The record is a 97-nucleotide sequence from Schmidtea mediterranea, which matches "mir-2154 microRNA precursor family" in Rfam. Gene Ontology terms of the family: RISC complex and miRNA-mediated post-transcriptional gene silencing. It is one of the family's seed sequences. The organism belongs to Schmidtea, within Eukaryota.
[Rfam]
RNA sequence: GAGUGAUUAUUAGAAUUUCAGCUGUACAAUUGGCAUUGUGUAUGAUAAAUGAAUAUAUUAACACAAGUCUUUGUAUAGCUUAUAUUUUUUAUCACUA
Numbered sequence: 001g002a003g004u005g006a007u008u009a010u011u012a013g014a015a016u017u018u019c020a021g022c023u024g025u026a027c028a029a030u031u032g033g034c035a036u037u038g039u040g041u042a043u044g045a046u047a048a049a050u051g052a053a054u055a056u057a058u059u060a061a062c063a064c065a066a067g068u069c070u071u072u073g074u075a076u077a078g079c080u081u082a083u084a085u086u087u088u089u090u091a092u093c094a095c096u097a
Stems, first nucleotide, its partner, number of pairs: 002096006012088005020080010032069003036066006043060005